The family of this 75-nucleotide sequence from Anguilla anguilla is "Small nucleolar RNA SNORD2". Rfam links the family to the GO terms nucleolus and RNA processing. The base pairs follow the family's consensus structure, which was predicted with WAR. On this family, see Zhou et al., Gene 2004: "Identification of a novel box C/D snoRNA from mouse nucleolar cDNA library".
[Rfam]
RNA sequence: UAGUGAGAUGAUGCUUUACCAUCUUUCGGGACUGACCAGUCAAUGGAGAUGCCUUAUUUAUCUAACUGAUCACUA
Numbered sequence: 001u002a003g004u005g006a007g008a009u010g011a012u013g014c015u016u017u018a019c020c021a022u023c024u025u026u027c028g029g030g031a032c033u034g035a036c037c038a039g040u041c042a043a044u045g046g047a048g049a050u051g052c053c054u055u056a057u058u059u060a061u062c063u064a065a066c067u068g069a070u071c072a073c074u075a
Stems, first nucleotide, its partner, number of pairs: 001075006